[Rfam]
Nucleotides: 050
Base pairs, nucleotide, nucleotide: 002019003018004017005016006015007014008013037050038049039048040047041046
Number, partner (000 for none) and nucleotide at each position: 001000g002019g003018g004017g005016a006015a007014g008013g009000a010000c011000g012000a013008c014007c015006u016005u017004u018003c019002u020000g021000u022000u023000c024000a025000c026000c027000a028000a029000a030000u031000c032000a033000g034000c035000c036000g037050c038049g039048g040047g041046g042000a043000c044000g045000a046041c047040c048039c049038u050037g
This 50-nucleotide sequence from Bradyrhizobium sp. Leo170 belongs to the Rfam family "Guanidine-II riboswitch aptamer (mini-ykkC)". The family's consensus secondary structure is taken from published work. For this family Rfam cites "Identification of 22 candidate structured RNAs in bacteria using the CMfinder comparative genomics pipeline" (Weinberg et al., Nucleic Acids Res, 2007). The organism belongs to Bradyrhizobium, within Bacteria. Its family is annotated with regulation of gene expression in the Gene Ontology.